[Rfam]
RNA: rpsB sRNA
RNA sequence: CACACACGGAAGUCGGGUUGGAUAGGCUGGAGCGAUGCUCCGGUCACGUCGCGCCCACCGGUGGCGGCUUGAUUGCCGCUUCAUUCCGUGGAGGCAUAACCGGUCAAAGGACAGAC
Numbered sequence: 001c002a003c004a005c006a007c008g009g010a011a012g013u014c015g016g017g018u019u020g021g022a023u024a025g026g027c028u029g030g031a032g033c034g035a036u037g038c039u040c041c042g043g044u045c046a047c048g049u050c051g052c053g054c055c056c057a058c059c060g061g062u063g064g065c066g067g068c069u070u071g072a073u074u075g076c077c078g079c080u081u082c083a084u085u086c087c088g089u090g091g092a093g094g095c096a097u098a099a100c101c102g103g104u105c106a107a108a109g110g111a112c113a114g115a116c
Base pairs, nucleotide, nucleotide: 001093003091005090006089007088008087009086010085011084015056016055041053042052063080064079065078066077067076068075